The record is a 135-nucleotide RNA sequence from Ailuropoda melanoleuca, which matches "Small nucleolar RNA SNORA1" in Rfam.
Rfam's curators write: ACA1 is a member of the H/ACA class of snoRNA that guide the sites of modification of uridines to pseudouridines.
The base pairs follow the family's consensus structure, which was predicted with PFOLD.
[Rfam]
RNA sequence: AGCCUCGUUCUAGAAGGAAAUGGGCACUAUCAUUCAUCGUGUCCAGAAAUCGUUAAUGUGGCUACACUGAGACACAGGAUAUGCUGCCAGCACGGCAAGUUUAUUUCAGUGGUGACAAUCAGACUCAUAACAUUU
Numbered sequence: 001a002g003c004c005u006c007g008u009u010c011u012a013g014a015a016g017g018a019a020a021u022g023g024g025c026a027c028u029a030u031c032a033u034u035c036a037u038c039g040u041g042u043c044c045a046g047a048a049a050u051c052g053u054u055a056a057u058g059u060g061g062c063u064a065c066a067c068u069g070a071g072a073c074a075c076a077g078g079a080u081a082u083g084c085u086g087c088c089a090g091c092a093c094g095g096c097a098a099g100u101u102u103a104u105u106u107c108a109g110u111g112g113u114g115a116c117a118a119u120c121a122g123a124c125u126c127a128u129a130a131c132a133u134u135u
Stems, first nucleotide, its partner, number of pairs: 002062003006058003021045007074128001077125002088114002091111003
Dot-bracket structure: .(((.(((............(((((((...........)))))))..........))).)))...........(..((.........((.(((...............))).)).........))..).......